[Rfam]
RNA sequence: AGGUCUAUGAUGACAAACCAAUGUCAGGCAGAGAGGUGAUGACAUAAAAAUCAUGAUUACACUGAGGCCC
Numbered sequence: 001a002g003g004u005c006u007a008u009g010a011u012g013a014c015a016a017a018c019c020a021a022u023g024u025c026a027g028g029c030a031g032a033g034a035g036g037u038g039a040u041g042a043c044a045u046a047a048a049a050a051u052c053a054u055g056a057u058u059a060c061a062c063u064g065a066g067g068c069c070c
Stems, first nucleotide, its partner, number of pairs: 002069003005064001008061002